Overview: Shown here is a 51-nucleotide RNA, a member of the family "6A RNA". The family's consensus secondary structure is taken from published work. Rfam classes the family as a small RNA.

RNA sequence: GAUUUAGUCGUAGGACGCGACUAAGUAAAAUAAAAGAAAAGUCCACUGAGA
Numbered sequence: 001g002a003u004u005u006a007g008u009c010g011u012a013g014g015a016c017g018c019g020a021c022u023a024a025g026u027a028a029a030a031u032a033a034a035a036g037a038a039a040a041g042u043c044c045a046c047u048g049a050g051a
Base pairs, nucleotide, nucleotide: 005023006022007021008020009019010018013044014043015042016041